[Rfam]
RNA sequence: GCUGCUGCUCGCACCCACUGCUGGUGCCCGGUGCUGGUCCUGAUCGCUCGGCACCAUCAAUGGGUGCGAGCGGCGGCUG
Number, nucleotide and partner (000 for none) at each position: 001g000002c000003u000004g074005c073006u072007g071008c070009u069010c068011g067012c066013a065014c064015c063016c062017a061018c000019u059020g058021c000022u056023g055024g054025u053026g052027c051028c050029c000030g000031g000032u000033g000034c000035u000036g000037g000038u000039c000040c000041u000042g000043a000044u000045c000046g000047c000048u000049c000050g028051g027052c026053a025054c024055c023056a022057u000058c020059a019060a000061u017062g016063g015064g014065u013066g012067c011068g010069a009070g008071c007072g006073g005074c004075g000076g000077c000078u000079g000
Rfam assigns this 79-nucleotide sequence from Myotis lucifugus to the family "mir-9198 microRNA precursor family".
Gene Ontology terms of the family: miRNA-mediated post-transcriptional gene silencing and RISC complex.
The organism belongs to Myotis, within Eukaryota.
The family's consensus secondary structure was predicted with RNAalifold.